[Rfam]
The record is a 140-nucleotide RNA from Rubrobacter radiotolerans, which matches "TPP riboswitch aptamer (THI element)" in Rfam.

RNA sequence: GAGUCGCACCAGGGGAGCUUCCGGCGACGCCAAAGGGCGUCAGGGGAAGCUGAGAGGGCGCAGGGGAGGGUUCUCCCGCCGCGCCGACCCUCAGACCUGAUCCGGAUAAUGCCGGCGGAGGAAGGCUUUACACAAGACGC
Numbered sequence: 001g002a003g004u005c006g007c008a009c010c011a012g013g014g015g016a017g018c019u020u021c022c023g024g025c026g027a028c029g030c031c032a033a034a035g036g037g038c039g040u041c042a043g044g045g046g047a048a049g050c051u052g053a054g055a056g057g058g059c060g061c062a063g064g065g066g067a068g069g070g071u072u073c074u075c076c077c078g079c080c081g082c083g084c085c086g087a088c089c090c091u092c093a094g095a096c097c098u099g100a101u102c103c104g105g106a107u108a109a110u111g112c113c114g115g116c117g118g119a120g121g122a123a124g125g126c127u128u129u130a131c132a133c134a135a136g137a138c139g140c
Stems, first nucleotide, its partner, number of pairs: 006128001009125002011091004017050005057085005096121003102115004
Annotation
Taxonomically the source falls in Rubrobacter (Bacteria, Bacillati, Actinomycetota, Rubrobacterales). Pairs were carried over by alignment from the consensus structure, which is taken from published work.